Source information:
The record is a 204-nucleotide RNA sequence from Oryza sativa, which matches "MIR812 microRNA precursor family" in Rfam. It scores 99 bits against the family's covariance model.
[Rfam]
RNA sequence: AAUAGAUGACGCCGUUAAUUUUUUCUCACAUGUUUGACCAUUCGUGUUAUUCAAAAAAUUUACGUAAUUAUAAUUUAUUUUGUUAUGAGUUGUUUUAUCACUCAUAGUACUUUAAGUGUGAUUUAUAUCUUAUACAUUUGCAUAAAAUUUUUUAAUAAGACGAAUGGUUAAACAUGUGAGAAAAAGUCAACGGCGUCAUCUAUU
Numbered sequence: 001a002a003u004a005g006a007u008g009a010c011g012c013c014g015u016u017a018a019u020u021u022u023u024u025c026u027c028a029c030a031u032g033u034u035u036g037a038c039c040a041u042u043c044g045u046g047u048u049a050u051u052c053a054a055a056a057a058a059u060u061u062a063c064g065u066a067a068u069u070a071u072a073a074u075u076u077a078u079u080u081u082g083u084u085a086u087g088a089g090u091u092g093u094u095u096u097a098u099c100a101c102u103c104a105u106a107g108u109a110c111u112u113u114a115a116g117u118g119u120g121a122u123u124u125a126u127a128u129c130u131u132a133u134a135c136a137u138u139u140g141c142a143u144a145a146a147a148u149u150u151u152u153u154a155a156u157a158a159g160a161c162g163a164a165u166g167g168u169u170a171a172a173c174a175u176g177u178g179a180g181a182a183a184a185a186g187u188c189a190a191c192g193g194c195g196u197c198a199u200c201u202a203u204u
Base pairs, nucleotide, nucleotide: 027178028177029176030175031174032173033172034171035170036169037168038167039166040165041164042163043162044161045160047158048157049156050155